[Rfam]
RNA: Mason-Pfizer monkey virus packaging signal
RNA sequence: UGGCACCCCAACGUGGGGCCCAAGAAUGGGGGAUCCAGUGAGGGACUCUGUUUGAGAGGCCGGCACAAAAACAGGAUGGAGAAAAUUCUGAGAAUACAGGAAAAGACUAUGCAGGAGCCUGGUGCAUUUUCUGAACCUCGGUAAGUGAACAGUGAUUAUGGGACAAGAAGUGAGCCAGCAUGAGAUUUUUGUUGAAAGUCUAGGAAAGGCUUUAAAGGUGCCAGGAGUAAAGGUUAAAAUCAAGCAAUUGCGUCAAUAUUUUGAUUUACAAAAGAAGCUUGUCCUU
Numbered sequence: 001u002g003g004c005a006c007c008c009c010a011a012c013g014u015g016g017g018g019c020c021c022a023a024g025a026a027u028g029g030g031g032g033a034u035c036c037a038g039u040g041a042g043g044g045a046c047u048c049u050g051u052u053u054g055a056g057a058g059g060c061c062g063g064c065a066c067a068a069a070a071a072c073a074g075g076a077u078g079g080a081g082a083a084a085a086u087u088c089u090g091a092g093a094a095u096a097c098a099g100g101a102a103a104a105g106a107c108u109a110u111g112c113a114g115g116a117g118c119c120u121g122g123u124g125c126a127u128u129u130u131c132u133g134a135a136c137c138u139c140g141g142u143a144a145g146u147g148a149a150c151a152g153u154g155a156u157u158a159u160g161g162g163a164c165a166a167g168a169a170g171u172g173a174g175c176c177a178g179c180a181u182g183a184g185a186u187u188u189u190u191g192u193u194g195a196a197a198g199u200c201u202a203g204g205a206a207a208g209g210c211u212u213u214a215a216a217g218g219u220g221c222c223a224g225g226a227g228u229a230a231a232g233g234u235u236a237a238a239a240u241c242a243a244g245c246a247a248u249u250g251c252g253u254c255a256a257u258a259u260u261u262u263g264a265u266u267u268a269c270a271a272a273a274g275a276a277g278c279u280u281g282u283c284c285u286u
Base pairs, nucleotide, nucleotide: 006031007030008029013027014026036050037049038048096142097141099137100136105132106130110126111125112124113123146165147164150162153160154159171214172213173212174210175209176208221263223261224260225259227257228256231249232248234246271286272285274283275282